[Rfam]
RNA sequence: CGCGUCUGCUAGGGGAGCCGCCAUCGCGCAAGUUUGCGCGGGCUGCUGAGAGGGCUUGAAGGCCGACCCUAUCAACCUGAUCCGGUUCGUACCGGCGUAGGGAAGUGGACCGCCUCGGCC
Numbered sequence: 001c002g003c004g005u006c007u008g009c010u011a012g013g014g015g016a017g018c019c020g021c022c023a024u025c026g027c028g029c030a031a032g033u034u035u036g037c038g039c040g041g042g043c044u045g046c047u048g049a050g051a052g053g054g055c056u057u058g059a060a061g062g063c064c065g066a067c068c069c070u071a072u073c074a075a076c077c078u079g080a081u082c083c084g085g086u087u088c089g090u091a092c093c094g095g096c097g098u099a100g101g102g103a104a105g106u107g108g109a110c111c112g113c114c115u116c117g118g119c120c
Base pairs, nucleotide, nucleotide: 006108007107008106009105010104011070012069013068014067017046018045020043021042053063055061056060076101077100078099079098082095083094084093085092
Overview: A member of the RNA family "TPP riboswitch aptamer (THI element)" from Capsulimonas corticalis, 120 nucleotides long. Rfam links the family to the GO term thiamine pyrophosphate binding. The family's consensus secondary structure is taken from published work.